The record is a 340-nucleotide RNA from Aspergillus coremiiformis, which matches "A. fumigatus sRNA Afu_309" in Rfam.

[Rfam]
RNA sequence: UUCAACCGAACACAUACGGAUCUGUGUCCAGCGAUCCUGAGCGUGGAAGCGCUUUUUCUUUUGAAGGAGUUGUUUCUGCGUUUCGGUUGAUUACUGGACAGUUCGACGACUUAAGGAGCCAUCACAUUCAUGGAUGGUUGAUUUAUUUCCGGUCGACAGAUCUCAGAUUAAAGGUCGGCGUUGGGUGUUCACUCUGGUCUUGAGCUCCCUUUUUCUCUUCGGAGGAAUUGGUGAGCUCGGCUGGAGAGCCUAGUGCUCGGCGGCGUCAUAUUCCUACUCUCUUCACCGAUUUGGCCGUCGGCCGAUGAGGUUAGGGAAAAACCAUGACUAGCCAACAACA
Numbered sequence: 001u002u003c004a005a006c007c008g009a010a011c012a013c014a015u016a017c018g019g020a021u022c023u024g025u026g027u028c029c030a031g032c033g034a035u036c037c038u039g040a041g042c043g044u045g046g047a048a049g050c051g052c053u054u055u056u057u058c059u060u061u062u063g064a065a066g067g068a069g070u071u072g073u074u075u076c077u078g079c080g081u082u083u084c085g086g087u088u089g090a091u092u093a094c095u096g097g098a099c100a101g102u103u104c105g106a107c108g109a110c111u112u113a114a115g116g117a118g119c120c121a122u123c124a125c126a127u128u129c130a131u132g133g134a135u136g137g138u139u140g141a142u143u144u145a146u147u148u149c150c151g152g153u154c155g156a157c158a159g160a161u162c163u164c165a166g167a168u169u170a171a172a173g174g175u176c177g178g179c180g181u182u183g184g185g186u187g188u189u190c191a192c193u194c195u196g197g198u199c200u201u202g203a204g205c206u207c208c209c210u211u212u213u214u215c216u217c218u219u220c221g222g223a224g225g226a227a228u229u230g231g232u233g234a235g236c237u238c239g240g241c242u243g244g245a246g247a248g249c250c251u252a253g254u255g256c257u258c259g260g261c262g263g264c265g266u267c268a269u270a271u272u273c274c275u276a277c278u279c280u281c282u283u284c285a286c287c288g289a290u291u292u293g294g295c296c297g298u299c300g301g302c303c304g305a306u307g308a309g310g311u312u313a314g315g316g317a318a319a320a321a322c323c324a325u326g327a328c329u330a331g332c333c334a335a336c337a338a339c340a
Base pairs, nucleotide, nucleotide: 018163019162020161021160022159023158024157025156026099027098028097029096030095031094033092034091035090036089037086038085039084040083041082042080043079045076046075047074048073051070052069053068055066056065057064058063107155108154109153110152111151114144115143116142118138119137120136174257176255180254181253182252183251184250185249196242197241198240199239202238203237204236205235206234207233208231209230262333263332264331265328266327267326268325269324278317279316280315281314282313285311286310287309293303294302295301296300

Pairs were carried over by alignment from the consensus structure, which was predicted with WAR. On this family, see Jochl et al., Nucleic Acids Res 2008: "Small ncRNA transcriptome analysis from Aspergillus fumigatus suggests a novel mechanism for regulation of protein synthesis".